[Rfam]
Notes
Rfam assigns this 301-nucleotide RNA from Cuscuta europaea to the family "Plant signal recognition particle RNA". Taxonomically the source falls in Cuscuta subgen. Cuscuta (Eukaryota, Tracheophyta, Magnoliopsida, Gunneridae). The literature on the family includes a 2000 paper in Science by Batey et al., "Crystal structure of the ribonucleoprotein core of the signal recognition particle".

RNA sequence: GCCGGGUUCAGUAACGUGGGCCUGUAACCAAGUGGGGCAUCAAGAUGAAGAGAACUGCCGAUGGUGCCUGAGGGUAAGAUCUGGGCUGCUAUAUAUGGGCCGCCCAUUCCAAGCAAAGUGUAGCCCAUGAGAAUCUGGCGAAGGCUGGGAAUUUCAUGGACACUAAAGUGGAGGGUACUGCGUCAGGCUGGUUUCACAGAGCAGCGAUUACUUCCCGCAUCUUGCGGUGGAAGGAUAACGGCUCGGUGUGGCCCAGGUCUGCUAAAUAUCCAUUGGGCUCUUCGGUAGGACCUUCAUUUUU
Numbered sequence: 001g002c003c004g005g006g007u008u009c010a011g012u013a014a015c016g017u018g019g020g021c022c023u024g025u026a027a028c029c030a031a032g033u034g035g036g037g038c039a040u041c042a043a044g045a046u047g048a049a050g051a052g053a054a055c056u057g058c059c060g061a062u063g064g065u066g067c068c069u070g071a072g073g074g075u076a077a078g079a080u081c082u083g084g085g086c087u088g089c090u091a092u093a094u095a096u097g098g099g100c101c102g103c104c105c106a107u108u109c110c111a112a113g114c115a116a117a118g119u120g121u122a123g124c125c126c127a128u129g130a131g132a133a134u135c136u137g138g139c140g141a142a143g144g145c146u147g148g149g150a151a152u153u154u155c156a157u158g159g160a161c162a163c164u165a166a167a168g169u170g171g172a173g174g175g176u177a178c179u180g181c182g183u184c185a186g187g188c189u190g191g192u193u194u195c196a197c198a199g200a201g202c203a204g205c206g207a208u209u210a211c212u213u214c215c216c217g218c219a220u221c222u223u224g225c226g227g228u229g230g231a232a233g234g235a236u237a238a239c240g241g242c243u244c245g246g247u248g249u250g251g252c253c254c255a256g257g258u259c260u261g262c263u264a265a266a267u268a269u270c271c272a273u274u275g276g277g278c279u280c281u282u283c284g285g286u287a288g289g290a291c292c293u294u295c296a297u298u299u300u301u
Base pairs, nucleotide, nucleotide: 001038002037003036004023005022006021007020008019009018010017028035029034042300043299044298045297046296047295048294049293050292052291055288056287057286058285059284060282061281063279064278065277067276068275070273072271073270074269075268076267077260078259079258080257081256082255083254084253086251087250088249090248091247096245097244098243099242100241101240102239104234105233107232108231109230110229111228113225114224115223116222118220119219120218121217123161125159126158127157128156129155130154131153132152134150135149136148137146138145139144163168170215171214172213173212174211181206182205183204188199189198190197

Description:
The family has 63 seed sequences and 4,988 matches in Rfam 15.1. It scores 208 bits against the family's covariance model.